[Rfam]
The family of this 81-nucleotide RNA from Ralstonia solanacearum is "c-di-GMP-I-UAU riboswitch aptamer". The family's consensus secondary structure is taken from published work. Its Rfam clan is "c-di-GMP_I riboswitch clan". Rfam's curators put it in the seed alignment. Lineage of the source: Bacteria > Pseudomonadati > Pseudomonadota > Betaproteobacteria > Ralstonia solanacearum. For this family Rfam cites "Bioinformatic analysis of riboswitch structures uncovers variant classes with altered ligand specificity" (Weinberg et al., Proc Natl Acad Sci U S A, 2017).

RNA sequence: UGUUGCAUUUGCAAAGCUGGAGUGAUCCGGCGACGCAAAGCCAGGGGGACUUCCGUAUCGGAAGUCAGCCAGUUGUCCGCC
Numbered sequence: 001u002g003u004u005g006c007a008u009u010u011g012c013a014a015a016g017c018u019g020g021a022g023u024g025a026u027c028c029g030g031c032g033a034c035g036c037a038a039a040g041c042c043a044g045g046g047g048g049a050c051u052u053c054c055g056u057a058u059c060g061g062a063a064g065u066c067a068g069c070c071a072g073u074u075g076u077c078c079g080c081c
Base pairs, nucleotide, nucleotide: 011036012035016031017030018029019028020027021026039074040073041072046070047069048066049065050064051063052062053061054060